RNA sequence: UCUGAUCCACACGACUGGCGCAGGUGGGCAACCACCAGGGAGUGAGCCGGGAGCAUCGACCGCCUGGGUGCUCUCA
Numbered sequence: 001u002c003u004g005a006u007c008c009a010c011a012c013g014a015c016u017g018g019c020g021c022a023g024g025u026g027g028g029c030a031a032c033c034a035c036c037a038g039g040g041a042g043u044g045a046g047c048c049g050g051g052a053g054c055a056u057c058g059a060c061c062g063c064c065u066g067g068g069u070g071c072u073c074u075c076a
Base pairs, nucleotide, nucleotide: 003049004048008046010044011043012042015039016038017064018063019062020061024035025034026033027032053071054070055069056068057067
The family of this 76-nucleotide RNA sequence from Nocardioides soli is "ZMP/ZTP riboswitch aptamer (pfl RNA motif)".
On this family, see Trausch et al., Chem Biol 2015: "Metal Ion-Mediated Nucleobase Recognition by the ZTP Riboswitch".
A search with the family's covariance model found it, with a score of 44 bits.